[Rfam]
RNA sequence: GAAGAAAAGUAGAAGUAUCCGCUUCUCACCUUAUGGCGAAAGCUUAUAAGGUUAUAGUCCAUAUUUUAGAAACAACUAUAUCCUCAAUAUAUAGUUAGUUGUGCAUAUUUUUUGGAGUUAUAGCGGGUAUUUUCUACCCGCUUUUAUUUUUAAGA
Numbered sequence: 001g002a003a004g005a006a007a008a009g010u011a012g013a014a015g016u017a018u019c020c021g022c023u024u025c026u027c028a029c030c031u032u033a034u035g036g037c038g039a040a041a042g043c044u045u046a047u048a049a050g051g052u053u054a055u056a057g058u059c060c061a062u063a064u065u066u067u068a069g070a071a072a073c074a075a076c077u078a079u080a081u082c083c084u085c086a087a088u089a090u091a092u093a094g095u096u097a098g099u100u101g102u103g104c105a106u107a108u109u110u111u112u113u114g115g116a117g118u119u120a121u122a123g124c125g126g127g128u129a130u131u132u133u134c135u136a137c138c139c140g141c142u143u144u145u146a147u148u149u150u151u152a153a154g155a
Base pairs, nucleotide, nucleotide: 011026012025013024014023015022016021028052029051030050033047034046035045036043037042122142123141124140125139126138127137128136129135
RNA: Ribosomal protein L20 leader